Shown here is a 218-nucleotide RNA sequence from Starkeya nomas, a member of the family "Bradyrhizobiaceae sRNA BjrC174". Taxonomically the source falls in Starkeya (Bacteria, Pseudomonadati, Alphaproteobacteria, Xanthobacteraceae). The literature on the family includes a 2012 paper in RNA Biol by Madhugiri et al., "Small RNAs of the Bradyrhizobium/Rhodopseudomonas lineage and their analysis". Rfam classes the family as a small RNA. The match comes from Rfam's covariance-model search (51 bits).
RNA sequence: GUCAGCUCGUUAACCAAAAACACACAGCCGCCCGAAUUCAACCAUUGCCAUGCCUUGCGGGGCUUCCAAUCUCUCCACCAUAGCGUUGGGCCGGUUCGCGUGGCGCAUCGGUUUCCCAGCCCCCCAGCCCCCCGCGGCGUUCGUGGGCCGGCCUGACGUUAUGUUCUAGGUUCAAUCCCCGAAUUGCCCUUUGGGCCGGCUACGUUGCCGGCCCUUUU
Numbered sequence: 001g002u003c004a005g006c007u008c009g010u011u012a013a014c015c016a017a018a019a020a021c022a023c024a025c026a027g028c029c030g031c032c033c034g035a036a037u038u039c040a041a042c043c044a045u046u047g048c049c050a051u052g053c054c055u056u057g058c059g060g061g062g063c064u065u066c067c068a069a070u071c072u073c074u075c076c077a078c079c080a081u082a083g084c085g086u087u088g089g090g091c092c093g094g095u096u097c098g099c100g101u102g103g104c105g106c107a108u109c110g111g112u113u114u115c116c117c118a119g120c121c122c123c124c125c126a127g128c129c130c131c132c133c134g135c136g137g138c139g140u141u142c143g144u145g146g147g148c149c150g151g152c153c154u155g156a157c158g159u160u161a162u163g164u165u166c167u168a169g170g171u172u173c174a175a176u177c178c179c180c181g182a183a184u185u186g187c188c189c190u191u192u193g194g195g196c197c198g199g200c201u202a203c204g205u206u207g208c209c210g211g212c213c214c215u216u217u218u
Base pairs, nucleotide, nucleotide: 034166035051039047080162081161082160083159084158085157086156088153090152091151092150093149094148095147096146097145098144099143103140104139105138106137109134110133111132119128120127193214194213195212196211197210198209199208200207